Cyano-1 RNA: a 73-nucleotide RNA from Cyanobacterium aponinum.
It is annotated as a small RNA.
The family's consensus secondary structure is taken from published work.
The organism belongs to Cyanobacterium aponinum, within Bacteria.
[Rfam]
RNA sequence: UAGGGUGUGAGGAAAUCAAAGAAUAGCUCUUGGGGUCGAAACACGGCAAGACUCCCAAGGGCUUUUCUUUUUG
Dot-bracket structure: ..............(....((((...((...((((((............))).)))...))...)))))....